[Rfam]
RNA sequence: GGUGUCUGGAAUGGAGGCUGAUCCAAGAUCCUUGGUCCGAAAUAUUGUGUUUCUGUGUUUGUUGCCAAGGAUCUCGGACCAGGCUUCAUUCCUCACACC
Numbered sequence: 001g002g003u004g005u006c007u008g009g010a011a012u013g014g015a016g017g018c019u020g021a022u023c024c025a026a027g028a029u030c031c032u033u034g035g036u037c038c039g040a041a042a043u044a045u046u047g048u049g050u051u052u053c054u055g056u057g058u059u060u061g062u063u064g065c066c067a068a069g070g071a072u073c074u075c076g077g078a079c080c081a082g083g084c085u086u087c088a089u090u091c092c093u094c095a096c097a098c099c
Stems, first nucleotide, its partner, number of pairs: 001099005008092006016084001018082003024076001026074001
Source information:
The family of this 99-nucleotide RNA sequence from Brachypodium distachyon is "mir-166 microRNA precursor family". This family represents the plant microRNA (miRNA) precursor mir-166. It scores 62 bits against the family's covariance model. Taxonomically the source falls in Brachypodium (Eukaryota, Mesangiospermae, Pooideae, Brachypodieae). The literature on the family includes a 2002 paper in Genes Dev by Reinhart et al., "MicroRNAs in plants". Rfam links the family to the GO terms RISC complex and miRNA-mediated post-transcriptional gene silencing. Rfam 15.1 lists 2,599 matches to the family in 229 species.